[Rfam]
RNA: glmS glucosamine-6-phosphate activated ribozyme aptamer
Organism: Anaerocolumna chitinilytica
RNA sequence: AUGUUUAAAUUAGCGCCAUGUACCUCUUUGGGAGAAAUACAGAGGUUAACGAGGUAGAGAGUUAGCGAAAUGUUCGGCGGAUGCUCUCUCAUAGGCUUGGCUGUGUGAAUUGUCGAAAAAUCUUUGGGUAACUAAAGGACAACAGCGGCAAUACCAAGAUAA
Numbered sequence: 001a002u003g004u005u006u007a008a009a010u011u012a013g014c015g016c017c018a019u020g021u022a023c024c025u026c027u028u029u030g031g032g033a034g035a036a037a038u039a040c041a042g043a044g045g046u047u048a049a050c051g052a053g054g055u056a057g058a059g060a061g062u063u064a065g066c067g068a069a070a071u072g073u074u075c076g077g078c079g080g081a082u083g084c085u086c087u088c089u090c091a092u093a094g095g096c097u098u099g100g101c102u103g104u105g106u107g108a109a110u111u112g113u114c115g116a117a118a119a120a121u122c123u124u125u126g127g128g129u130a131a132c133u134a135a136a137g138g139a140c141a142a143c144a145g146c147g148g149c150a151a152u153a154c155c156a157a158g159a160u161a162a
Stems, first nucleotide, its partner, number of pairs: 022046006029039001056089005066076003090105005109152007121138007